A member of the RNA family "mir-30 microRNA precursor family" from Austrofundulus limnaeus, 74 nucleotides long. Taxonomically the source falls in Austrofundulus (Eukaryota, Deuterostomia, Teleostomi, Ctenosquamata). The match comes from Rfam's covariance-model search (67 bits). Rfam describes the family as follows. This family consists of the mammalian microRNA (miRNA) precursor mir-30a. Animal miRNAs are transcribed as ~70nt precursors and subsequently processed by the Dicer enzyme to give a ~22nt product. A reference for the family is Mourelatos et al. (2002), "miRNPs: a novel class of ribonucleoproteins containing numerous microRNAs", Genes Dev. Rfam 15.1 lists 3,879 matches to the family in 647 species. Rfam links the family to the GO terms gene silencing by miRNA and RISC complex.

RNA sequence: UCCAGGCGUGUAAACAUCCUACACUCUCAGCUGUGUUGUGAUGGAGCUGGGAGAGGGGUGUUUACUCUUCUGGC
Numbered sequence: 001u002c003c004a005g006g007c008g009u010g011u012a013a014a015c016a017u018c019c020u021a022c023a024c025u026c027u028c029a030g031c032u033g034u035g036u037u038g039u040g041a042u043g044g045a046g047c048u049g050g051g052a053g054a055g056g057g058g059u060g061u062u063u064a065c066u067c068u069u070c071u072g073g074c
Base pairs, nucleotide, nucleotide: 002073003072004071005070006069008067010065011064012063013062014061015060016059017058018057019056020055024053025052026051027050028049029048030047031046032045